Background: The record is a 96-nucleotide RNA from Firmicutes bacterium CAG:176, which matches "SAM riboswitch aptamer (S box leader)" in Rfam. Taxonomically the source falls in Bacillota (Bacteria, Bacillati).
[Rfam]
RNA sequence: ACCUUAUCAAGAGUGGCGGAGGGACCGGCCCGAUGAAGCCACGGCAACCUGUUUUUUCAAGGUGCCAAAUCCGGCGAACGAAUCGAAAGAUGAGGA
Number, nucleotide and partner (000 for none) at each position: 001a000002c095003c094004u093005u092006a091007u090008c089009a000010a000011g000012a000013g042014u041015g040016g039017c038018g000019g000020a000021g031022g030023g029024a000025c074026c073027g072028g071029c023030c022031c021032g000033a000034u000035g000036a000037a000038g017039c016040c015041a014042c013043g066044g065045c064046a063047a000048c062049c061050u059051g058052u000053u000054u000055u000056u000057u000058c051059a050060a000061g049062g048063u046064g045065c044066c043067a000068a000069a000070u088071c028072c027073g026074g025075c085076g084077a083078a000079c000080g000081a000082a000083u077084c076085g075086a000087a000088a070089g008090a007091u006092g005093a004094g003095g002096a000